[Rfam]
Rfam assigns this 79-nucleotide RNA from Mesocricetus auratus to the family "Small nucleolar RNA SNORD115". Gene Ontology terms of the family: RNA processing and nucleolus. The family's consensus secondary structure was predicted with PFOLD. The organism belongs to Mesocricetus, within Eukaryota. It is annotated as a C/D-box small nucleolar RNA.
RNA sequence: GGGUCUAUGAUGACACACCUACGUCAUGAAGAGAGGUGAUGACAAAAAUAUCAUGUUCAGGUUCCUGCUGCUGAGGCCC
Numbered sequence: 001g002g003g004u005c006u007a008u009g010a011u012g013a014c015a016c017a018c019c020u021a022c023g024u025c026a027u028g029a030a031g032a033g034a035g036g037u038g039a040u041g042a043c044a045a046a047a048a049u050a051u052c053a054u055g056u057u058c059a060g061g062u063u064c065c066u067g068c069u070g071c072u073g074a075g076g077c078c079c
Base pairs, nucleotide, nucleotide: 001079002078003077004076005073008070009069